Rfam assigns this 71-nucleotide sequence from Lottia gigantea to the family "Small nucleolar RNA SNORD2". Pairs were carried over by alignment from the consensus structure, which was predicted with WAR. It is annotated as a C/D-box small nucleolar RNA. A reference for the family is Zhou et al. (2004), "Identification of a novel box C/D snoRNA from mouse nucleolar cDNA library", Gene. Taxonomically the source falls in Lottia (Eukaryota, Spiralia, Lophotrochozoa, Lottioidea).

RNA sequence: UAGUGUAGUGAUGUUUUACCAUCUUUCGGGGCAUAUAAUUGCUGAUGAUAUUUUUAUUUUACUGAACACUA
Numbered sequence: 001u002a003g004u005g006u007a008g009u010g011a012u013g014u015u016u017u018a019c020c021a022u023c024u025u026u027c028g029g030g031g032c033a034u035a036u037a038a039u040u041g042c043u044g045a046u047g048a049u050a051u052u053u054u055u056a057u058u059u060u061a062c063u064g065a066a067c068a069c070u071a
Stems, first nucleotide, its partner, number of pairs: 001071006